[Rfam]
A member of the RNA family "Small nucleolar RNA SNORD25" from Eucalyptus grandis, 85 nucleotides long. By type it is a C/D-box small nucleolar RNA. Gene Ontology terms of the family: nucleolus and RNA processing. Pairs were carried over by alignment from the consensus structure, which was predicted with PFOLD. A reference for the family is Tycowski et al. (1996), "A mammalian gene with introns instead of exons generating stable RNA products", Nature. The organism belongs to Eucalyptus, within Eukaryota. It scores 60 bits against the family's covariance model.

Nucleotides: 085
Stems, first nucleotide, its partner, number of pairs: 002084005
Number, partner (000 for none) and nucleotide at each position: 001000u002084g003083a004082g005081a006080c007000g008000g009000u010000g011000a012000u013000g014000a015000g016000c017000u018000c019000u020000a021000c022000a023000g024000a025000c026000c027000u028000g029000u030000a031000a032000u033000g034000a035000c036000u037000u038000g039000c040000g041000a042000g043000c044000a045000u046000g047000a048000u049000c050000g051000c052000a053000a054000c055000u056000c057000u058000u059000u060000a061000u062000g063000a064000a065000c066000a067000u068000c069000u070000a071000a072000g073000g074000g075000a076000c077000u078000g079000a080006g081005u082004c083003u084002c085000a